[Rfam]
RNA sequence: UAAUUGCAUCAAGAGUGGCACAAUUUGCCCACCAACCGGCCAACUGUCGUAGGCAUCGGUGGUAAAAUGAUGUGAGUGAGAUUGUUUAACCCACUAAAAAUUUACGAUGAU
Numbered sequence: 001u002a003a004u005u006g007c008a009u010c011a012a013g014a015g016u017g018g019c020a021c022a023a024u025u026u027g028c029c030c031a032c033c034a035a036c037c038g039g040c041c042a043a044c045u046g047u048c049g050u051a052g053g054c055a056u057c058g059g060u061g062g063u064a065a066a067a068u069g070a071u072g073u074g075a076g077u078g079a080g081a082u083u084g085u086u087u088a089a090c091c092c093a094c095u096a097a098a099a100a101u102u103u104a105c106g107a108u109g110a111u
Stems, first nucleotide, its partner, number of pairs: 006073005015030001017029004031063003036059003039054003044106001075095004
The record is a 111-nucleotide RNA sequence from Xylanibacter ruminicola, which matches "SAM-I/IV (S-adenosyl methionine) riboswitch aptamer" in Rfam. The family's consensus secondary structure is taken from published work. Its family is annotated with regulation of gene expression and S-adenosylmethionine metabolic process in the Gene Ontology. Taxonomically the source falls in Xylanibacter ruminicola (Bacteria, Pseudomonadati, Bacteroidota, Xylanibacter). The literature on the family includes a 2008 paper in RNA by Weinberg et al., "The aptamer core of SAM-IV riboswitches mimics the ligand-binding site of SAM-I riboswitches".